[Rfam]
RNA sequence: CUAAGGUGAGCGGUAAGUCCGCUGUAAGUUGUUUCUGGUGUUCCCUUCCAUCGGUAGGCCAGAGCCAGGACGACAAAAACUUGCAGGGCGCGCUCAUUUU
Number, nucleotide and partner (000 for none) at each position: 001c000002u000003a098004a097005g000006g095007u000008g000009a000010g093011c092012g000013g000014u000015a000016a000017g000018u000019c000020c000021g000022c000023u000024g000025u083026a082027a081028g080029u079030u078031g000032u077033u070034u069035c068036u067037g066038g065039u064040g000041u000042u000043c000044c058045c057046u056047u000048c054049c053050a000051u000052c000053g049054g048055u000056a046057g045058g044059c000060c000061a000062g000063a000064g039065c038066c037067a036068g035069g034070a033071c000072g000073a000074c000075a000076a000077a032078a030079a029080c028081u027082u026083g025084c000085a000086g000087g000088g000089c000090g000091c000092g011093c010094u000095c006096a000097u004098u003099u000100u000

Rfam assigns this 100-nucleotide RNA to the family "DUF3800-V RNA". By type it is a small RNA. The sequence is in the family's curated seed alignment. The base pairs follow the family's consensus structure, which is taken from published work.